This 31-nucleotide sequence belongs to the Rfam family "Iron response element II". From the family's description: IRE, TFRC, SLC40A1, SDHB, SLC11A2, CDC42BPA, ACO2, ALAS2_H.SAPIENS, CDC14A, EPAS1, ALAS2, qoxD, Hao1, NDUFS1, transferrin, Aconitate.
RNA sequence: GAAAAAUCCGCAACAGUGUUUUCGAUUUUUC
Numbered sequence: 001g002a003a004a005a006a007u008c009c010g011c012a013a014c015a016g017u018g019u020u021u022u023c024g025a026u027u028u029u030u031c
Stems, first nucleotide, its partner, number of pairs: 001031007009024002012021002014018001
Rfam links the family to the GO term response to iron ion. The literature on the family includes a 2006 paper in Biochem Biophys Res Commun by Cmejla et al., "A novel iron responsive element in the 3'UTR of human MRCKalpha".